The record is an 86-nucleotide RNA from Cellulomonas aerilata, which matches "c-di-GMP-II-GCG riboswitch aptamer" in Rfam. It scores 54 bits against the family's covariance model. Clan: c-di-GMP_II riboswitch clan. Rfam links the family to the GO terms regulation of gene expression and cyclic-di-GMP binding.

RNA sequence: GGACCGGUGGGAGGCGAUGACGCGCACGUCCUCCGUGGCCGCCUCGGACGGGCGCCGAGCCACUGGCGAACCCGACCCACCUCGGA
Dot-bracket structure: .....((((((.(((......((((.(((.......[[.[[[[....))).))))...)))...]]]]...]]..)))))).....